The record is a 314-nucleotide RNA sequence from Helobdella robusta, which matches "Nuclear RNase P" in Rfam. The match comes from Rfam's covariance-model search (154 bits).

RNA sequence: UCGGUUGUAAUGCUCGCCUUAGGGGCAACAAGCGAGUGCGUGUCACUCACGGUGCCUUUGGGAAGGUCUGAGAUUUGGGCUAACUUACGUCCUUGCAGGACGCAGCUGUAAAUUAACGGUUGGCGAGGUUAUCAGAAAUAGUCCUGAGGGCCAUGAUUUGGCGCGAGAACGUUUACGCUCGUCGUAAAUGCGAUGCCGCGAAUUGUUUCGCUGUGGCCUUGUCAAGGUUGGAAGAAUCUCGCAGUCGGCUUUGCAAAGUUCGAUAGGUGAGGUGAACGUUGUUCAUAACUCGAUUCAGACUACUCUACGACCGG
Number, nucleotide and partner (000 for none) at each position: 001u314002c313003g312004g311005u000006u000007g308008u307009a306010a000011u000012g000013c271014u270015c269016g268017c267018c266019u265020u000021a059022g058023g057024g056025g055026c000027a000028a000029c000030a000031a000032g000033c000034g048035a047036g046037u045038g044039c000040g000041u000042g000043u000044c038045a037046c036047u035048c034049a000050c000051g000052g000053u000054g000055c025056c024057u023058u022059u021060g000061g000062g000063a000064a000065g000066g000067u000068c298069u297070g296071a295072g294073a000074u000075u000076u000077g000078g246079g245080c244081u243082a000083a000084c000085u000086u000087a000088c102089g101090u100091c099092c098093u000094u000095g000096c000097a000098g092099g091100a090101c089102g088103c122104a121105g120106c119107u118108g117109u000110a000111a000112a000113u000114u000115a000116a000117c108118g107119g106120u105121u104122g103123g242124c241125g240126a239127g238128g237129u236130u000131a000132u000133c000134a000135g000136a000137a000138a000139u000140a000141g000142u000143c227144c226145u225146g000147a000148g000149g000150g000151c000152c000153a000154u000155g000156a000157u000158u000159u000160g000161g000162c000163g000164c000165g000166a000167g000168a000169a000170c000171g000172u000173u000174u000175a000176c000177g000178c000179u000180c000181g000182u000183c000184g000185u000186a000187a000188a000189u000190g000191c000192g000193a000194u000195g000196c000197c000198g000199c000200g000201a000202a000203u000204u000205g000206u000207u000208u000209c000210g000211c000212u000213g000214u000215g000216g000217c000218c000219u000220u000221g000222u000223c000224a000225a145226g144227g143228u000229u000230g000231g000232a000233a000234g000235a000236a129237u128238c127239u126240c125241g124242c123243a081244g080245u079246c078247g000248g000249c000250u000251u000252u000253g000254c000255a000256a000257a000258g000259u000260u000261c000262g000263a000264u000265a019266g018267g017268u016269g015270a014271g013272g286273u285274g284275a283276a282277c000278g000279u000280u000281g000282u276283u275284c274285a273286u272287a000288a000289c000290u000291c000292g000293a000294u072295u071296c070297a069298g068299a000300c000301u000302a000303c000304u000305c000306u009307a008308c007309g000310a000311c004312c003313g002314g001